[Rfam]
Description: The record is a 127-nucleotide RNA from Chondrocystis sp. NIES-4102, which matches "c-di-AMP riboswitch aptamer (ydaO/yuaA leader)" in Rfam. This family represents a conserved RNA structure found upstream of the ydaO and yuaA genes in Bacillus subtilis and related genes in other bacteria. It scores 66 bits against the family's covariance model.
RNA sequence: UUAAAUCAUAAACCAGACAAUAAAAACGGGGAAACCAAUUUUGGGGCUUAUUUCUACGAAAAAUAGAAAGGGACAUCUCUCAGUCCUAGCCCGUCAGCUAACCUCGUCGGCAUUGAGAGGAGAUUGA
Numbered sequence: 001u002u003a004a005a006u007c008a009u010a011a012a013c014c015a016g017a018c019a020a021u022a023a024a025a026a027c028g029g030g031g032a033a034a035c036c037a038a039u040u041u042u043g044g045g046g047c048u049u050a051u052u053u054c055u056a057c058g059a060a061a062a063a064u065a066g067a068a069a070g071g072g073a074c075a076u077c078u079c080u081c082a083g084u085c086c087u088a089g090c091c092c093g094u095c096a097g098c099u100a101a102c103c104u105c106g107u108c109g110g111c112a113u114u115g116a117g118a119g120g121a122g123a124u125u126g127a
Stems, first nucleotide, its partner, number of pairs: 001109001006024001026107006036043002044092003052068004071086004